[Rfam]
RNA sequence: AUAUUUAAUUUGCCAAAACACUGCUAAGGCAGGUGCGGGGGACGAUUUUUGACAAGCUGAUGUAUCCAUGAUGAGGAAUAGCAUCGUUUUGUCUAGGGGUGAAGCACAGAUAUUUUGUGCCGGGAGCUGUCCUUUUUUCCGAAUCCGACAACUAACCUCGCAGGCGUUAAAGGAGGAGCA
Dot-bracket structure: ..........((((...((.............))((((((.....(................................................).(((.....((((.......))))..((((...........))))...))).........)))))).))))..............